[Rfam]
RNA sequence: GACGAUAAAGGCAAACCCGCCGCGAGGCGGGGACGCAAAGCCACGGGCCUCCAGGAGGCAGCCGGGUUACCGAAA
Numbered sequence: 001g002a003c004g005a006u007a008a009a010g011g012c013a014a015a016c017c018c019g020c021c022g023c024g025a026g027g028c029g030g031g032g033a034c035g036c037a038a039a040g041c042c043a044c045g046g047g048c049c050u051c052c053a054g055g056a057g058g059c060a061g062c063c064g065g066g067u068u069a070c071c072g073a074a075a
Stems, first nucleotide, its partner, number of pairs: 003072002011036002016031006034061001039068004044064003047059003
Shown here is a 75-nucleotide RNA from Rubrobacter marinus, a member of the family "c-di-GMP-I-GGC riboswitch aptamer".
Lineage of the source: Bacteria > Bacillati > Rubrobacteria > Rubrobacteraceae > Rubrobacter.
A reference for the family is Weinberg et al. (2017), "Bioinformatic analysis of riboswitch structures uncovers variant classes with altered ligand specificity", Proc Natl Acad Sci U S A.
The base pairs follow the family's consensus structure, which is taken from published work.